The record is a 75-nucleotide RNA from Octopus sinensis, which matches "mir-5928 microRNA precursor family" in Rfam. The source organism's lineage runs through Eukaryota, Eumetazoa, Lophotrochozoa, Octopoda and Octopus. Gene Ontology terms of the family: miRNA-mediated post-transcriptional gene silencing and RISC complex. Pairs were carried over by alignment from the consensus structure, which was predicted with RNAalifold.
[Rfam]
RNA sequence: GUCUUAACCAGUCAUCAGCCCAGGAUAGUGAGAUCAGCAGAUCUCACUAUCCUGGGCUGAUGACGGGUUAAGACC
Number, nucleotide and partner (000 for none) at each position: 001g074002u073003c072004u071005u070006a069007a068008c067009c066010a000011g064012u063013c062014a061015u060016c059017a058018g057019c056020c055021c054022a053023g052024g000025a050026u049027a048028g047029u046030g045031a000032g043033a042034u041035c040036a000037g000038c000039a000040g035041a034042u033043c032044u000045c030046a029047c028048u027049a026050u025051c000052c023053u022054g021055g020056g019057c018058u017059g016060a015061u014062g013063a012064c011065g000066g009067g008068u007069u006070a005071a004072g003073a002074c001075c000